RNA sequence: AUGUCGGGAGGCGCCGGUGGGACGGUUGCCACGAAUAGACAUGAAGCCCCCUGUCAAAUGGGUGUUGUUCCACGGCCCGGGUGGAUCAGCA
Numbered sequence: 001a002u003g004u005c006g007g008g009a010g011g012c013g014c015c016g017g018u019g020g021g022a023c024g025g026u027u028g029c030c031a032c033g034a035a036u037a038g039a040c041a042u043g044a045a046g047c048c049c050c051c052u053g054u055c056a057a058a059u060g061g062g063u064g065u066u067g068u069u070c071c072a073c074g075g076c077c078c079g080g081g082u083g084g085a086u087c088a089g090c091a
Stems, first nucleotide, its partner, number of pairs: 001042005010030003013026004063091005069085004